Fluoride riboswitch aptamer (crcB RNA motif): a 74-nucleotide RNA from Microlunatus antarcticus.
The match comes from Rfam's covariance-model search (39 bits).
[Rfam]
RNA sequence: AUUGAUGGUGGUGAUGGAUUCCGCCUGAGGCCUCGGCCUCGAACCGCCGUGUGGCUGAUGACUCCUGGGACGAA
Numbered sequence: 001a002u003u004g005a006u007g008g009u010g011g012u013g014a015u016g017g018a019u020u021c022c023g024c025c026u027g028a029g030g031c032c033u034c035g036g037c038c039u040c041g042a043a044c045c046g047c048c049g050u051g052u053g054g055c056u057g058a059u060g061a062c063u064c065c066u067g068g069g070a071c072g073a074a
Base pairs, nucleotide, nucleotide: 010025011024012023013022016065017064018063020061021060046055047054048053